[Rfam]
RNA sequence: GUUCUUGUAGUUGAAAUACAACGAUGGUUUUUCAUAUCAUUGGUCGUGGUUGUAGUCCGUGCGAGAAUA
Numbered sequence: 001g002u003u004c005u006u007g008u009a010g011u012u013g014a015a016a017u018a019c020a021a022c023g024a025u026g027g028u029u030u031u032u033c034a035u036a037u038c039a040u041u042g043g044u045c046g047u048g049g050u051u052g053u054a055g056u057c058c059g060u061g062c063g064a065g066a067a068u069a
Stems, first nucleotide, its partner, number of pairs: 001068007010022004024040005045061005

Source information
The family of this 69-nucleotide sequence is "tRNA". Gene Ontology term of the family: triplet codon-amino acid adaptor activity. It is one of the family's seed sequences.